[Rfam]
RNA sequence: UGCCGAGGUUUUCCUCGGUAGUUAAUUGCAGUCGGUUCCAAAAAAAUUCGACAGUUAACUACUGAGGGGUAU
Numbered sequence: 001u002g003c004c005g006a007g008g009u010u011u012u013c014c015u016c017g018g019u020a021g022u023u024a025a026u027u028g029c030a031g032u033c034g035g036u037u038c039c040a041a042a043a044a045a046a047u048u049c050g051a052c053a054g055u056u057a058a059c060u061a062c063u064g065a066g067g068g069g070u071a072u
Stems, first nucleotide, its partner, number of pairs: 012068002015065014